[Rfam]
RNA sequence: AACAGAGUAGAAAUUUGUGCGUAAAGUGUUUUGUGGACGGGGAGUUGCCACAAAAACGAAAGGGUAUCCUGCGGUACAAGUUUCGCAUCCCGCUGUU
Numbered sequence: 001a002a003c004a005g006a007g008u009a010g011a012a013a014u015u016u017g018u019g020c021g022u023a024a025a026g027u028g029u030u031u032u033g034u035g036g037a038c039g040g041g042g043a044g045u046u047g048c049c050a051c052a053a054a055a056a057c058g059a060a061a062g063g064g065u066a067u068c069c070u071g072c073g074g075u076a077c078a079a080g081u082u083u084c085g086c087a088u089c090c091c092g093c094u095g096u097u
Stems, first nucleotide, its partner, number of pairs: 001097005010084010020073003026057002029055008040090003044086001061070003

This 97-nucleotide RNA from Eubacterium sp. CAG:202 belongs to the Rfam family "THF (Tetrahydrofolate) riboswitch aptamer". Lineage of the source: Bacteria > Bacillati > Bacillota > Eubacteriales > Eubacterium. Rfam's curators write: Tetrahydrofolate (THF) riboswitch was first reported for Ames et al. as an RNA motif in 5' untranslated (5'-UTR)regions of folate transport and biosynthesis genes in Firmicutes genomes. The base pairs follow the family's consensus structure, which is taken from published work.